[Rfam]
RNA: TPP riboswitch aptamer (THI element)
Organism: Streptomyces sp. SID10853
Nucleotides: 095
Base pairs, nucleotide, nucleotide: 007082008081009080010079011045012044013043014042016039017031018030019029020028021027051076052075053074057070058069059068060067
Number, partner (000 for none) and nucleotide at each position: 001000g002000u003000a004000a005000c006000g007082g008081a009080c010079a011045c012044g013043g014042g015000g016039u017031g018030c019029c020028c021027c022000g023000c024000c025000c026000a027021g028020g029019g030018g031017c032000u033000g034000a035000g036000a037000u038000c039016a040000c041000a042014c043013c044012c045011g046000c047000c048000g049000a050000a051076c052075c053074u054000g055000a056000a057070c058069c059068a060067g061000u062000u063000a064000g065000u066000a067060c068059u069058g070057g071000c072000g073000g074053a075052g076051g077000g078000a079010u080009g081008u082007c083000g084000c085000u086000c087000a088000u089000g090000u091000c092000a093000u094000u095000g